[Rfam]
RNA: 7SK RNA
Organism: Eurystomus gularis
RNA sequence: CGAUGUGAGGGUGAUCUGGCUGUGACAUCUGUCACCCCAUUGAUCACCAGGGCUGAUUUGGCCGAUCUGGCUGGCCAGGCAGGUGUCCCCUUCCUCCCUCACCGCUCCCUGUGUGUCCCUUCUGAAGCUGCACGCUCGGUCGAAGAGGACCAAGCCGAUAGAGGCAUGUGCCGUUCAUCAGUCAAGGGUAUAUGAGAGCUGUGCUCCCCUGCCAGAACCUCCAAUCAAGCUCAAGAUCAUGGAGUCCAACCGCUCAGCUAACACUGCCACAUCACAUACAACGCUUUUACUGUUUUUUCUAGCAUCAAAAGGAGCAGUUAAA
Dot-bracket structure: .((.(((((((.((...((....((((((((((.(((((..((((.((...........))..)))))))..))...)))))))))).)).))..)))))))...)).........(((((((((.((.....))))))(((.............)))..))))...)...............................(...((...(.(.......((((..................)))).....).)...))...)........................(((.(((((((((........))))..)))))..)))